[Rfam]
RNA sequence: GCCCGGUUAGCUCAGUUGGUAGAGCGUUGGGCUUUUAACCCAAAUGUCGAGGGUUCGACCCCCUCAUCGGGCG
Numbered sequence: 001g002c003c004c005g006g007u008u009a010g011c012u013c014a015g016u017u018g019g020u021a022g023a024g025c026g027u028u029g030g031g032c033u034u035u036u037a038a039c040c041c042a043a044a045u046g047u048c049g050a051g052g053g054u055u056c057g058a059c060c061c062c063c064u065c066a067u068c069g070g071g072c073g
Stems, first nucleotide, its partner, number of pairs: 001072007010025004027043005049065005
RNA: tRNA
Organism: Apophysomyces ossiformis